[Rfam]
RNA sequence: GGGAGUAGGAGCAAAGAGCCGUGAGAAUCGGCUUCGCCGUAGGGGCUAAGGGUUCCUCGGCAACGCUCGUCAGCCGAGGGUUAGGCGGUCCUAAGGUGCACCCCAAGUGGAGUGUACCGAAUGGGAAGCCGGUUAAUAUUCCGGCCCCGUGGGUGUUCCGCCCAGCGGAUGACGCUUCGGGCUAGGCCAAGUACCGUCGCCGCGGUAUCUAAGCGUUGAAACUCCUGGAGUUCCGUAAUGGAGAGAAGGGAGUGAAGACGUGAUGGGCCCUCCUAGGGGGGGUUUGGCUGAUGCCUGGAGCCCGUGAAAAGUCCGUUGGGGUCAAGCCCACGACCGUACCAAGAACUGACACAGGUGCCCCUGGGUGAGAAGCCUAAGGCGUGU
Numbered sequence: 001g002g003g004a005g006u007a008g009g010a011g012c013a014a015a016g017a018g019c020c021g022u023g024a025g026a027a028u029c030g031g032c033u034u035c036g037c038c039g040u041a042g043g044g045g046c047u048a049a050g051g052g053u054u055c056c057u058c059g060g061c062a063a064c065g066c067u068c069g070u071c072a073g074c075c076g077a078g079g080g081u082u083a084g085g086c087g088g089u090c091c092u093a094a095g096g097u098g099c100a101c102c103c104c105a106a107g108u109g110g111a112g113u114g115u116a117c118c119g120a121a122u123g124g125g126a127a128g129c130c131g132g133u134u135a136a137u138a139u140u141c142c143g144g145c146c147c148c149g150u151g152g153g154u155g156u157u158c159c160g161c162c163c164a165g166c167g168g169a170u171g172a173c174g175c176u177u178c179g180g181g182c183u184a185g186g187c188c189a190a191g192u193a194c195c196g197u198c199g200c201c202g203c204g205g206u207a208u209c210u211a212a213g214c215g216u217u218g219a220a221a222c223u224c225c226u227g228g229a230g231u232u233c234c235g236u237a238a239u240g241g242a243g244a245g246a247a248g249g250g251a252g253u254g255a256a257g258a259c260g261u262g263a264u265g266g267g268c269c270c271u272c273c274u275a276g277g278g279g280g281g282g283u284u285u286g287g288c289u290g291a292u293g294c295c296u297g298g299a300g301c302c303c304g305u306g307a308a309a310a311g312u313c314c315g316u317u318g319g320g321g322u323c324a325a326g327c328c329c330a331c332g333a334c335c336g337u338a339c340c341a342a343g344a345a346c347u348g349a350c351a352c353a354g355g356u357g358c359c360c361c362u363g364g365g366u367g368a369g370a371a372g373c374c375u376a377a378g379g380c381g382u383g384u
Stems, first nucleotide, its partner, number of pairs: 016034006035381004043360004050340002055079006065071001086336003090124002095118006102110002128145005148332007168313003174301009185289005191208005213261004222252005232242003273277001346355002362376004